Rfam assigns this 245-nucleotide sequence from Tauraco erythrolophus to the family "Small nucleolar RNA SNORD17".
Pairs were carried over by alignment from the consensus structure, which was predicted with RNAalifold.
By type it is a C/D-box small nucleolar RNA.

RNA sequence: GUGAGGUGAUGACGAAGUCUAUCCAUUCUCUGAGUGCAAUGGUGCUGCCCUCCUGCAGCACCCUGAUUCCUGUUCUAGGAUAUGGGUGCUGUGCAGCCUGCAGAUACCCUCCAGUCUCCCAGUGUCCUACUCGGGGCUGCUGUGGUGUGUGGCUGGCUGCCUGCAGGAGUGAAGUGCUGGCAGGGUUGGAGCCCCUCUUUGGAGGGACUCCAUCCUCAUUGAGAUGAGGGACAAUGUCUGAUCAC
Dot-bracket structure: .........(((....((.(..((.(((.((..((....(.(((((.(.((((((((...(.((...((((.....))))....)).)....((((((.......((....(((((.((.((((...)))).))))))).....))........)))))).)))))))).).)))).).)..(((.((((.((...........))..)))).).))))..))..)))))...).))....))).
Numbered sequence: 001g002u003g004a005g006g007u008g009a010u011g012a013c014g015a016a017g018u019c020u021a022u023c024c025a026u027u028c029u030c031u032g033a034g035u036g037c038a039a040u041g042g043u044g045c046u047g048c049c050c051u052c053c054u055g056c057a058g059c060a061c062c063c064u065g066a067u068u069c070c071u072g073u074u075c076u077a078g079g080a081u082a083u084g085g086g087u088g089c090u091g092u093g094c095a096g097c098c099u100g101c102a103g104a105u106a107c108c109c110u111c112c113a114g115u116c117u118c119c120c121a122g123u124g125u126c127c128u129a130c131u132c133g134g135g136g137c138u139g140c141u142g143u144g145g146u147g148u149g150u151g152g153c154u155g156g157c158u159g160c161c162u163g164c165a166g167g168a169g170u171g172a173a174g175u176g177c178u179g180g181c182a183g184g185g186u187u188g189g190a191g192c193c194c195c196u197c198u199u200u201g202g203a204g205g206g207a208c209u210c211c212a213u214c215c216u217c218a219u220u221g222a223g224a225u226g227a228g229g230g231a232c233a234a235u236g237u238c239u240g241a242u243c244a245c
Stems, first nucleotide, its partner, number of pairs: 010244003017237002020234001023230002026228003030223002034219002040180001042178001043176004048171001050169008061088001063086002068080004093160006106146002112139005118134002121131004183217002185214001187212004192206002